[Rfam]
RNA: Streptomyces sRNA 4677
Organism: Streptomyces somaliensis
RNA sequence: GGUUCCGGUGGGCCCGGCGGUCUUUUCCAAGGAACGGAAGGAAAGAAAGAACCACUCCCGACCCCGCCCCUCCCACCCCACGGGCGGCCUCACCCCGUCGGGUGAAUGUGGUCAAACCGGCUGGCCAAGAGCGGGGUCGCGCGUUCUACGCUCAGCGCGACAACAUCGUCUGGCAUAUGCGUCGGCCCCCGCCGGGACUAGCACUCCCAGGCGGGGGCCUGACCAACGAGGAAGCACGACCUUCCUG
Numbered sequence: 001g002g003u004u005c006c007g008g009u010g011g012g013c014c015c016g017g018c019g020g021u022c023u024u025u026u027c028c029a030a031g032g033a034a035c036g037g038a039a040g041g042a043a044a045g046a047a048a049g050a051a052c053c054a055c056u057c058c059c060g061a062c063c064c065c066g067c068c069c070c071u072c073c074c075a076c077c078c079c080a081c082g083g084g085c086g087g088c089c090u091c092a093c094c095c096c097g098u099c100g101g102g103u104g105a106a107u108g109u110g111g112u113c114a115a116a117c118c119g120g121c122u123g124g125c126c127a128a129g130a131g132c133g134g135g136g137u138c139g140c141g142c143g144u145u146c147u148a149c150g151c152u153c154a155g156c157g158c159g160a161c162a163a164c165a166u167c168g169u170c171u172g173g174c175a176u177a178u179g180c181g182u183c184g185g186c187c188c189c190c191g192c193c194g195g196g197a198c199u200a201g202c203a204c205u206c207c208c209a210g211g212c213g214g215g216g217g218c219c220u221g222a223c224c225a226a227c228g229a230g231g232a233a234g235c236a237c238g239a240c241c242u243u244c245c246u247g
Stems, first nucleotide, its partner, number of pairs: 007227001009225002016077002019074001090105006120156005184219005190213003194208004230245005